[Rfam]
RNA: MIR8643 microRNA precursor family
RNA sequence: AUGUCUUUUAACAUAUUAAGAAGUCGAAUUGGCAGUGAAGAAAGAAGUAAGAAGCCGAAAAGCCAUCAUUGCCUAUAAUCAAAACCCAUAAACAUUCUUUCUUCACUGCCAAUUCGACUUCCUAAUAUGUUAAAAGAAAU
Numbered sequence: 001a002u003g004u005c006u007u008u009u010a011a012c013a014u015a016u017u018a019a020g021a022a023g024u025c026g027a028a029u030u031g032g033c034a035g036u037g038a039a040g041a042a043a044g045a046a047g048u049a050a051g052a053a054g055c056c057g058a059a060a061a062g063c064c065a066u067c068a069u070u071g072c073c074u075a076u077a078a079u080c081a082a083a084a085c086c087c088a089u090a091a092a093c094a095u096u097c098u099u100u101c102u103u104c105a106c107u108g109c110c111a112a113u114u115c116g117a118c119u120u121c122c123u124a125a126u127a128u129g130u131u132a133a134a135a136g137a138a139a140u
Stems, first nucleotide, its partner, number of pairs: 004137015020121012033108014051093001